Rfam assigns this 86-nucleotide sequence to the family "GA-cis RNA".
RNA sequence: GCCAGGAGAUGACCAUGUGACGAAGUCACAUAUUAAAAUGGCAUCGACGACAUCACACAUUGCAGAGCAAUGUGUGAGUAACAAUA
Numbered sequence: 001g002c003c004a005g006g007a008g009a010u011g012a013c014c015a016u017g018u019g020a021c022g023a024a025g026u027c028a029c030a031u032a033u034u035a036a037a038a039u040g041g042c043a044u045c046g047a048c049g050a051c052a053u054c055a056c057a058c059a060u061u062g063c064a065g066a067g068c069a070a071u072g073u074g075u076g077a078g079u080a081a082c083a084a085u086a
Stems, first nucleotide, its partner, number of pairs: 008045004013040001015031006054076003058072002062068002